[Rfam]
RNA sequence: UUUUUGCAUGAGGGAAGGAAGCGGCAUCCUUUAUUUUCUUUCUUUAAGAAAAUAAAGAUACAGCGUACUGCCCGACCUUGC
Dot-bracket structure: ...........(((.((...((...(((...((((((((.......))))))))..)))...))...)).)))........
RNA: Flavo-1 RNA